[Rfam]
sRNA-Xcc1: a 90-nucleotide RNA from Plasticicumulans lactativorans. A reference for the family is Schmidtke et al. (2011), "Genome-wide transcriptome analysis of the plant pathogen Xanthomonas identifies sRNAs with putative virulence functions", Nucleic Acids Res. NCBI's taxonomy places the organism under Bacteria, Pseudomonadati, Pseudomonadota, Candidatus Competibacteraceae, Plasticicumulans. The base pairs follow the family's consensus structure, which was predicted with RNAalifold. It is annotated as a small RNA. A search with the family's covariance model found it, with a score of 63 bits.
RNA sequence: GCCGAGGGGCGCGCACCCAUACAACACCCGCAAGGGAAAAAGUGCGCGGCCGGUGCCUACUUCCGGUGUUGAACCCCUUGGCGCCCUUCA
Dot-bracket structure: (((((((((..((((...........(((....)))......))))..(((((.........)))))......)))))))))........